Shown here is a 404-nucleotide sequence from Blastococcus saxobsidens, a member of the family "Bacterial RNase P class A". Rfam classes the family as a ribozyme. About the family: Ribonuclease P (RNase P) is a ubiquitous endoribonuclease, found in archaea, bacteria and eukarya as well as chloroplasts and mitochondria. Lineage of the source: Bacteria > Actinomycetota > Actinomycetes > Blastococcus > Blastococcus saxobsidens. The match comes from Rfam's covariance-model search (286 bits).
RNA sequence: CGAGUCGGCUGGGCGGUCGCGUCGGCGGGGGAGACCCCGUCGCCGAGGAACGUCCGGGCUUCACAGGGCAGGGUGGUCGUUAACGGCGACCCGGGGUAACCCGCGGGACAGUGCCACAGAGAACAGACCGCCAGCGGUUCGCCGCUGGUAAGGGUGAAACGGUGGUGUAAGAGACCACCAGCACAUCGGGUGACCGGUGUGGCUCGGUAAACCCCACCCGGAGCUAGGUCAAGAAGGGACGGCGGUUCGCCGUCGUCCUGCGCAGGCGUUCGAGGGCGGCCCGCCCGAGCCUGCGGGUAGACCGCUCGAGCCUGCCGGCAACGGCAGGCCUAGAUGGAUGACCGCCCAUCGGGAGGCCGCAAGGCGCCCGUGGACAGAACCCGGCGUACAGGCCGACUCGUCCG
Numbered sequence: 001c002g003a004g005u006c007g008g009c010u011g012g013g014c015g016g017u018c019g020c021g022u023c024g025g026c027g028g029g030g031g032a033g034a035c036c037c038c039g040u041c042g043c044c045g046a047g048g049a050a051c052g053u054c055c056g057g058g059c060u061u062c063a064c065a066g067g068g069c070a071g072g073g074u075g076g077u078c079g080u081u082a083a084c085g086g087c088g089a090c091c092c093g094g095g096g097u098a099a100c101c102c103g104c105g106g107g108a109c110a111g112u113g114c115c116a117c118a119g120a121g122a123a124c125a126g127a128c129c130g131c132c133a134g135c136g137g138u139u140c141g142c143c144g145c146u147g148g149u150a151a152g153g154g155u156g157a158a159a160c161g162g163u164g165g166u167g168u169a170a171g172a173g174a175c176c177a178c179c180a181g182c183a184c185a186u187c188g189g190g191u192g193a194c195c196g197g198u199g200u201g202g203c204u205c206g207g208u209a210a211a212c213c214c215c216a217c218c219c220g221g222a223g224c225u226a227g228g229u230c231a232a233g234a235a236g237g238g239a240c241g242g243c244g245g246u247u248c249g250c251c252g253u254c255g256u257c258c259u260g261c262g263c264a265g266g267c268g269u270u271c272g273a274g275g276g277c278g279g280c281c282c283g284c285c286c287g288a289g290c291c292u293g294c295g296g297g298u299a300g301a302c303c304g305c306u307c308g309a310g311c312c313u314g315c316c317g318g319c320a321a322c323g324g325c326a327g328g329c330c331u332a333g334a335u336g337g338a339u340g341a342c343c344g345c346c347c348a349u350c351g352g353g354a355g356g357c358c359g360c361a362a363g364g365c366g367c368c369c370g371u372g373g374a375c376a377g378a379a380c381c382c383g384g385c386g387u388a389c390a391g392g393c394c395g396a397c398u399c400g401u402c403c404g
Stems, first nucleotide, its partner, number of pairs: 001400010011389001012346007020045002023042006050387003054384005059223004066282004071219005076090005091105001092103004106214002111212002113208003128153002130149008161179006181203001182201008227303004262294006274286004310329008